[Rfam]
Nucleotides: 047
Base pairs, nucleotide, nucleotide: 007041008040010038012036013035014034015033016032017031
Number, partner (000 for none) and nucleotide at each position: 001000a002000a003000g004000a005000g006000c007041c008040u009000g010038g011000a012036g013035u014034u015033a016032a017031u018000a019000g020000a021000a022000a023000c024000u025000g026000a027000g028000a029000a030000g031017g032016u033015u034014g035013a036012c037000c038010c039000g040008g041007g042000a043000c044000c045000g046000a047000a

A member of the RNA family "Plastid-rpl16 group II-D1 intron" from Dioscorea zingiberensis, 47 nucleotides long. The match comes from Rfam's covariance-model search (43 bits). On this family, see Richter et al., Plant Commun 2023: "Retrograde signaling in plants: A critical review focusing on the GUN pathway and beyond". Rfam links the family to the GO term Group II intron splicing. The family has 538 seed sequences and 1,446 matches in Rfam 15.1. Plastid-rpl16 is a non-coding RNA (ncRNA) recognised in plastids. It was recognised in and intronic region of a ribosome rpl16 gene.